This 398-nucleotide sequence from Pedococcus cremeus belongs to the Rfam family "Bacterial RNase P class A". About the family: Ribonuclease P (RNase P) is a ubiquitous endoribonuclease, found in archaea, bacteria and eukarya as well as chloroplasts and mitochondria. Lineage of the source: Bacteria > Bacillati > Micrococcales > Intrasporangiaceae > Pedococcus. The family's RNA type in Rfam is ribozyme.
RNA sequence: UGAGUCGGCCAGGCGGUCGCGUCGGUGAGCAAUCACCGCCGAGGAACGUCCGGGCUCCACAGGGCGCAGUGGUGGCUAACGGCCACCCGGGGUGACCCGCGGGACAGUGCCACAGAAAACAGACCGCCAAGGCGAACCGCCGGCCCUCGGGCCGGUAGGCGUCAGGGCAAGGGUGAAACGGUGGUGUAAGAGACCACCAGCGGCCCCGGUGACGGGGUCGGCUUGGUAAACCCCACUGGGAGCAAGCUCAGACAGUGUGCGUCCGAGGGCUGCCCGCCCGAGCACACGGGUAGAGCGCUGGAGGCAGUCGGCAACGGCUGUCGUAGAUGGAUGACCGUCGCCGCGCCGCUGGUAACGGCGGCGCGGAACAGAACCCGGCGUAUCGGCCGACUCAUCCA
Numbered sequence: 001u002g003a004g005u006c007g008g009c010c011a012g013g014c015g016g017u018c019g020c021g022u023c024g025g026u027g028a029g030c031a032a033u034c035a036c037c038g039c040c041g042a043g044g045a046a047c048g049u050c051c052g053g054g055c056u057c058c059a060c061a062g063g064g065c066g067c068a069g070u071g072g073u074g075g076c077u078a079a080c081g082g083c084c085a086c087c088c089g090g091g092g093u094g095a096c097c098c099g100c101g102g103g104a105c106a107g108u109g110c111c112a113c114a115g116a117a118a119a120c121a122g123a124c125c126g127c128c129a130a131g132g133c134g135a136a137c138c139g140c141c142g143g144c145c146c147u148c149g150g151g152c153c154g155g156u157a158g159g160c161g162u163c164a165g166g167g168c169a170a171g172g173g174u175g176a177a178a179c180g181g182u183g184g185u186g187u188a189a190g191a192g193a194c195c196a197c198c199a200g201c202g203g204c205c206c207c208g209g210u211g212a213c214g215g216g217g218u219c220g221g222c223u224u225g226g227u228a229a230a231c232c233c234c235a236c237u238g239g240g241a242g243c244a245a246g247c248u249c250a251g252a253c254a255g256u257g258u259g260c261g262u263c264c265g266a267g268g269g270c271u272g273c274c275c276g277c278c279c280g281a282g283c284a285c286a287c288g289g290g291u292a293g294a295g296c297g298c299u300g301g302a303g304g305c306a307g308u309c310g311g312c313a314a315c316g317g318c319u320g321u322c323g324u325a326g327a328u329g330g331a332u333g334a335c336c337g338u339c340g341c342c343g344c345g346c347c348g349c350u351g352g353u354a355a356c357g358g359c360g361g362c363g364c365g366g367a368a369c370a371g372a373a374c375c376c377g378g379c380g381u382a383u384c385g386g387c388c389g390a391c392u393c394a395u396c397c398a
Stems, first nucleotide, its partner, number of pairs: 001394010011383001012339007020041002023038006046381003050378005055242004062275004067238005072086005087101001088099004102233002107231002109227003124172002126168003131163004180198006200222001201220008246296004255287006267279004303322008